The record is a 219-nucleotide sequence from Oryza barthii, which matches "Plant small nucleolar RNA U3" in Rfam. The literature on the family includes a 1997 paper in Nucleic Acids Res by Zwieb, "The uRNA database". Rfam links the family to the GO terms nucleolus and RNA processing. A search with the family's covariance model found it, with a score of 183 bits.
RNA sequence: ACGACCUUACUUGAACAGGAUCUGUUCUAUAGGCUCGUACCGUUGCAUCCUUGACUAAUAAGGAGGCAAGCACUUAAGCUCGGUUGAUGACGCAUGACCUGUGGGCCAGAGCGUGAUUACCGGCCGGAUCCACUGGCUGAUUUGAUCCCACGGCUGUAGAGGAUCGUUUCUUGCCGGGCCUCGCCUGGCCAGGAUGGCUCUCAGGUUGUCUGACAGGCU
Numbered sequence: 001a002c003g004a005c006c007u008u009a010c011u012u013g014a015a016c017a018g019g020a021u022c023u024g025u026u027c028u029a030u031a032g033g034c035u036c037g038u039a040c041c042g043u044u045g046c047a048u049c050c051u052u053g054a055c056u057a058a059u060a061a062g063g064a065g066g067c068a069a070g071c072a073c074u075u076a077a078g079c080u081c082g083g084u085u086g087a088u089g090a091c092g093c094a095u096g097a098c099c100u101g102u103g104g105g106c107c108a109g110a111g112c113g114u115g116a117u118u119a120c121c122g123g124c125c126g127g128a129u130c131c132a133c134u135g136g137c138u139g140a141u142u143u144g145a146u147c148c149c150a151c152g153g154c155u156g157u158a159g160a161g162g163a164u165c166g167u168u169u170c171u172u173g174c175c176g177g178g179c180c181u182c183g184c185c186u187g188g189c190c191a192g193g194a195u196g197g198c199u200c201u202c203a204g205g206u207u208g209u210c211u212g213a214c215a216g217g218c219u
Stems, first nucleotide, its partner, number of pairs: 001038002003035001005033003013027006043069004048064006078218003082214001097206005103200006110168004121156006127147004132142001134140001170192002173189007